[Rfam]
RNA sequence: AAUUGCAUAGGGCGGUUAGUUUAUGCUGUUUAACCAUACCAGCGUAGUGGAUAGAACCCACAUUGGACUUCUAUAAGGAGAAAUAUAAAAUG
Numbered sequence: 001a002a003u004u005g006c007a008u009a010g011g012g013c014g015g016u017u018a019g020u021u022u023a024u025g026c027u028g029u030u031u032a033a034c035c036a037u038a039c040c041a042g043c044g045u046a047g048u049g050g051a052u053a054g055a056a057c058c059c060a061c062a063u064u065g066g067a068c069u070u071c072u073a074u075a076a077g078g079a080g081a082a083a084u085a086u087a088a089a090a091u092g
Base pairs, nucleotide, nucleotide: 001017002016003015004014005013006012022046023045024044025043026042027041028040047061048060049059050058